[Rfam]
RNA sequence: GGGCUGUAGCUAUAUCGAAUUACGAAAGAGAGAAGUUUACUGGCCGGUCGUCGUUCUCCGUCGACAGAUCUGCUUACCGAGCUUCUCACAGUU
Numbered sequence: 001g002g003g004c005u006g007u008a009g010c011u012a013u014a015u016c017g018a019a020u021u022a023c024g025a026a027a028g029a030g031a032g033a034a035g036u037u038u039a040c041u042g043g044c045c046g047g048u049c050g051u052c053g054u055u056c057u058c059c060g061u062c063g064a065c066a067g068a069u070c071u072g073c074u075u076a077c078c079g080a081g082c083u084u085c086u087c088a089c090a091g092u093u
Stems, first nucleotide, its partner, number of pairs: 030087008042074003046070004050065004